[Rfam]
Nucleotides: 060
Base pairs, nucleotide, nucleotide: 002059003058004057005056006055007054009052010051011050012049013048017044018043019042020041021040023038024037025036026035027034028033
Number, partner (000 for none) and nucleotide at each position: 001000c002059c003058c004057g005056g006055u007054c008000c009052u010051c011050g012049g013048u014000a015000g016000u017044g018043g019042c020041u021040c022000u023038c024037a025036g026035a027034c028033c029000u030000c031000g032000c033028g034027g035026u036025c037024u038023g039000c040021g041020g042019g043018c044017c045000u046000c047000g048013a049012u050011c051010g052009a053000a054007g055006a056005c057004c058003g059002g060000c

Actino-pnp RNA: a 60-nucleotide RNA from Nocardioides soli. By type it is a cis-regulatory element.